[Rfam]
A member of the RNA family "Connexin-43 internal ribosome entry site (IRES)" from Microtus ochrogaster, 199 nucleotides long. Rfam 15.1 lists 657 matches to the family in 497 species. The literature on the family includes a 1999 paper in FEBS Lett by Schiavi et al., "Connexin43 mRNA contains a functional internal ribosome entry site". The match comes from Rfam's covariance-model search (177 bits). This family represents the connexin-43 internal ribosome entry site (IRES) which allows cap independent translation during conditions such as heat shock and stress.
RNA sequence: GGCUUUUACGAGGUAUCAGCACUUUUCUUUCAUUGGGAGAAGGCGUGAGGAAAGUACCAAACAGCAGCAGACUUUUAAACUUUAAAUAGACAGGUCGGAGAGCCUGAGCCUUCCUUUUCCUUGACUUCAGCCUCCUAGGAGCCUCACUUUGGCGCGCCGGCUUCGCUUUCGUUAAGCGAAAGAGUAAGUUUUGAAAAAC
Numbered sequence: 001g002g003c004u005u006u007u008a009c010g011a012g013g014u015a016u017c018a019g020c021a022c023u024u025u026u027c028u029u030u031c032a033u034u035g036g037g038a039g040a041a042g043g044c045g046u047g048a049g050g051a052a053a054g055u056a057c058c059a060a061a062c063a064g065c066a067g068c069a070g071a072c073u074u075u076u077a078a079a080c081u082u083u084a085a086a087u088a089g090a091c092a093g094g095u096c097g098g099a100g101a102g103c104c105u106g107a108g109c110c111u112u113c114c115u116u117u118u119c120c121u122u123g124a125c126u127u128c129a130g131c132c133u134c135c136u137a138g139g140a141g142c143c144u145c146a147c148u149u150u151g152g153c154g155c156g157c158c159g160g161c162u163u164c165g166c167u168u169u170c171g172u173u174a175a176g177c178g179a180a181a182g183a184g185u186a187a188g189u190u191u192u193g194a195a196a197a198a199c
Base pairs, nucleotide, nucleotide: 002020003019004018007015008014009013029141030140031139033137035135036134037133039131040127041126042125047122048121049120050119052118053117054116070096071095072094073093074092098113099112100111102109148195149194150193151192152191154190161182162181163180164178165177166176167175168174